[Rfam]
RNA sequence: ACAUUCCAAAUAGCACAAAAAUACCGGCACAACAGGACUUGUUUAACCGGGAUAAGGGUUUAUCCCACUUAAACAAGUCCUGUUGUGCCGGUAUUUUUGUGCUAUUUGGAAUGU
Numbered sequence: 001a002c003a004u005u006c007c008a009a010a011u012a013g014c015a016c017a018a019a020a021a022u023a024c025c026g027g028c029a030c031a032a033c034a035g036g037a038c039u040u041g042u043u044u045a046a047c048c049g050g051g052a053u054a055a056g057g058g059u060u061u062a063u064c065c066c067a068c069u070u071a072a073a074c075a076a077g078u079c080c081u082g083u084u085g086u087g088c089c090g091g092u093a094u095u096u097u098u099g100u101g102c103u104a105u106u107u108g109g110a111a112u113g114u
Stems, first nucleotide, its partner, number of pairs: 001114003005110003009106008018096001020095027
RNA: mir-16 microRNA precursor family